RNA sequence: CGGCUCUGUAGCCCGAGGAAUUGGCUUCGGGGUAUCCACGAUCCGACCGCAAUCGGAUGAGACCAGAGACC
Numbered sequence: 001c002g003g004c005u006c007u008g009u010a011g012c013c014c015g016a017g018g019a020a021u022u023g024g025c026u027u028c029g030g031g032g033u034a035u036c037c038a039c040g041a042u043c044c045g046a047c048c049g050c051a052a053u054c055g056g057a058u059g060a061g062a063c064c065a066g067a068g069a070c071c
Stems, first nucleotide, its partner, number of pairs: 002070001004068005012031007041058006